[Rfam]
RNA sequence: GCCUUAUCGAGAGUGGCGGAGGGAUCGGCCCAAUGAAGCCACGGCAACCUGCUCGCAUGAGCAAGGUGCCAAAUCCGGCGGAGACGAGUGUUACACUCGCGCGCAAGAUGAGGA
Numbered sequence: 001g002c003c004u005u006a007u008c009g010a011g012a013g014u015g016g017c018g019g020a021g022g023g024a025u026c027g028g029c030c031c032a033a034u035g036a037a038g039c040c041a042c043g044g045c046a047a048c049c050u051g052c053u054c055g056c057a058u059g060a061g062c063a064a065g066g067u068g069c070c071a072a073a074u075c076c077g078g079c080g081g082a083g084a085c086g087a088g089u090g091u092u093a094c095a096c097u098c099g100c101g102c103g104c105a106a107g108a109u110g111a112g113g114a
Base pairs, nucleotide, nucleotide: 002113003112004111005110006109007108008107013042014041015040016039017038021031022030023029025078026077027076028075043070044069045068046067048066049065050063051062052061053060074106079103080102